[Rfam]
RNA sequence: GGAGAGGUGUCUGAGUGGUUUAAAGUACUGGUCUUGAAAACCAGCGUAGUUUUUGCUACCGAGGGUUCGAAUCCCUCCUUCUCCG
Numbered sequence: 001g002g003a004g005a006g007g008u009g010u011c012u013g014a015g016u017g018g019u020u021u022a023a024a025g026u027a028c029u030g031g032u033c034u035u036g037a038a039a040a041c042c043a044g045c046g047u048a049g050u051u052u053u054u055g056c057u058a059c060c061g062a063g064g065g066u067u068c069g070a071a072u073c074c075c076u077c078c079u080u081c082u083c084c085g
Base pairs, nucleotide, nucleotide: 001084002083003082004081005080006079007078011025012024028044029043030042031041032040061077062076063075064074065073
Source information: This 85-nucleotide sequence from Euglena gracilis belongs to the Rfam family "tRNA". The source organism's lineage runs through Eukaryota, Euglenozoa, Spirocuta, Euglenaceae and Euglena. It is annotated as a transfer RNA. The sequence is in the family's curated seed alignment.